RNA sequence: UCGUGCUAGACGGGGAGUCAGCGGUGCCCUGUACCUGCAAUCCGCUAUAGCAGGGUUGAAUUCCCGACUGAGGCUAUACUCUUUAGAGUCUGACCUCAACAAGUGGUGUUGAUAAUCGGGCCCUGUGCAAUAGAUACUUAUGAACCCCGCCAGAUCCGGAAGGAAGCAACGGUAAGUAAGUUUUUCUAUGUGCCGCAGGUCUACCUGAUUUGAGCUAACUAUUGAGGUAACGUCUGAAGGCUAUAUUCGAUGGAGGGUGCACGA
Numbered sequence: 001u002c003g004u005g006c007u008a009g010a011c012g013g014g015g016a017g018u019c020a021g022c023g024g025u026g027c028c029c030u031g032u033a034c035c036u037g038c039a040a041u042c043c044g045c046u047a048u049a050g051c052a053g054g055g056u057u058g059a060a061u062u063c064c065c066g067a068c069u070g071a072g073g074c075u076a077u078a079c080u081c082u083u084u085a086g087a088g089u090c091u092g093a094c095c096u097c098a099a100c101a102a103g104u105g106g107u108g109u110u111g112a113u114a115a116u117c118g119g120g121c122c123c124u125g126u127g128c129a130a131u132a133g134a135u136a137c138u139u140a141u142g143a144a145c146c147c148c149g150c151c152a153g154a155u156c157c158g159g160a161a162g163g164a165a166g167c168a169a170c171g172g173u174a175a176g177u178a179a180g181u182u183u184u185u186c187u188a189u190g191u192g193c194c195g196c197a198g199g200u201c202u203a204c205c206u207g208a209u210u211u212g213a214g215c216u217a218a219c220u221a222u223u224g225a226g227g228u229a230a231c232g233u234c235u236g237a238a239g240g241c242u243a244u245a246u247u248c249g250a251u252g253g254a255g256g257g258u259g260c261a262c263g264a
Base pairs, nucleotide, nucleotide: 001264002263003262004261005260006259009057010056011055012030013029014028015027017025018024019023034054035053036052037051038050063257064256065255068252072248073247075245076244078242080240081239082238083237084236085235086234087233091229092228095226096225097224098223099222103219104218105216106215107214114210115209116208117207118206119205120204122199123198124197125196126195127194128190129189131188132187133186134185136181137180138179139178140177141176147172148171149170155164156163157162